[Rfam]
This 99-nucleotide RNA from Caenorhabditis remanei belongs to the Rfam family "mir-36 microRNA precursor family". Rfam links the family to the GO terms RISC complex and miRNA-mediated post-transcriptional gene silencing. It is one of the family's seed sequences. Its Rfam clan is "mir-36 clan".
RNA sequence: ACUCCUCGGUCGGAUCGGACCUACACUGGUUUUCGCUGCGGUGAUACUUCGAGAAUGAUUAUCACCGGGUGAAAAUCAGGGCAGGUCCGAUUCCACCGA
Dot-bracket structure: ...............(((((((.(.((((((((((((.(.((((((.............)))))).))))))))))))).).)))))))..........
Numbered sequence: 001a002c003u004c005c006u007c008g009g010u011c012g013g014a015u016c017g018g019a020c021c022u023a024c025a026c027u028g029g030u031u032u033u034c035g036c037u038g039c040g041g042u043g044a045u046a047c048u049u050c051g052a053g054a055a056u057g058a059u060u061a062u063c064a065c066c067g068g069g070u071g072a073a074a075a076u077c078a079g080g081g082c083a084g085g086u087c088c089g090a091u092u093c094c095a096c097c098g099a
Stems, first nucleotide, its partner, number of pairs: 016089007024081001026079012039067001041065006